[Rfam]
RNA: Small nucleolar RNA SNORA9
RNA sequence: UUGUGAGCUUAAAAAGGUAAAUGCUUGGGUCUGCAGUGACCCUGUGCAUUCCUACAGUGCUUGCCAGAACAGUUCUGAAAUGGUUUGAGGCCUUGUUCUGCUCUCUCCAGAACAUGGUUAUAGAAAUUUCAGACAAUU
Number, nucleotide and partner (000 for none) at each position: 001u000002u000003g064004u063005g062006a061007g060008c059009u000010u000011a000012a000013a000014a000015a000016g000017g000018u000019a000020a000021a000022u048023g047024c046025u000026u000027g042028g041029g040030u039031c038032u000033g000034c000035a000036g000037u000038g031039a030040c029041c028042c027043u000044g000045u000046g024047c023048a022049u000050u000051c000052c000053u000054a000055c000056a000057g000058u000059g008060c007061u006062u005063g004064c003065c000066a000067g000068a000069a000070c000071a000072g000073u000074u000075c000076u131077g130078a129079a128080a127081u000082g000083g000084u000085u000086u000087g000088a000089g000090g000091c117092c116093u000094u114095g113096u112097u000098c110099u109100g108101c000102u000103c000104u000105c000106u000107c000108c100109a099110g098111a000112a096113c095114a094115u000116g092117g091118u000119u000120a000121u000122a000123g000124a000125a000126a000127u080128u079129u078130c077131a076132g000133a000134c000135a000136a000137u000138u000